RNA: Actino-pnp RNA
RNA sequence: ACCGGUCCUCGGUAGUGGCCUCCGGGGCGCGUGAGAACGCAGCACCCGUGGGCUUCGAUCGAAGACCGUG
Numbered sequence: 001a002c003c004g005g006u007c008c009u010c011g012g013u014a015g016u017g018g019c020c021u022c023c024g025g026g027g028c029g030c031g032u033g034a035g036a037a038c039g040c041a042g043c044a045c046c047c048g049u050g051g052g053c054u055u056c057g058a059u060c061g062a063a064g065a066c067c068g069u070g
Stems, first nucleotide, its partner, number of pairs: 003068005009062005017054005023048004029043002